[Rfam]
RNA: mraW RNA
RNA sequence: CCCGGACCGCGCACCGCGGUCUCUGUCCGAACCGACCCUGGCGUACUUCCCCAACGCCAGGUGCGCGACGUCGGACAGGGGCCACGGUGCACGGGCCGGGAUUC
Number, nucleotide and partner (000 for none) at each position: 001c000002c000003c000004g000005g000006a000007c000008c000009g000010c000011g090012c089013a088014c087015c086016g085017c000018g083019g082020u000021c080022u079023c078024u077025g076026u075027c074028c073029g072030a071031a000032c067033c065034g064035a000036c000037c061038c060039u059040g058041g057042c056043g055044u054045a000046c000047u000048u000049c000050c000051c000052c000053a000054a044055c043056g042057c041058c040059a039060g038061g037062u000063g000064c034065g033066c000067g032068a000069c000070g000071u030072c029073g028074g027075a026076c025077a024078g023079g022080g021081g000082c019083c018084a000085c016086g015087g014088u013089g012090c011091a000092c000093g000094g000095g000096c000097c000098g000099g000100g000101a000102u000103u000104c000